[Rfam]
RNA: Plastid-atpF group II-D1 intron
Organism: Kalanchoe fedtschenkoi
RNA sequence: AAUUUUUUUUUCGAUAUAUAACACUCAUGUCGAUAAAUUAAUUUCAACCAUUU
Numbered sequence: 001a002a003u004u005u006u007u008u009u010u011u012c013g014a015u016a017u018a019u020a021a022c023a024c025u026c027a028u029g030u031c032g033a034u035a036a037a038u039u040a041a042u043u044u045c046a047a048c049c050a051u052u053u
Base pairs, nucleotide, nucleotide: 011033012032013031014030015029016028017027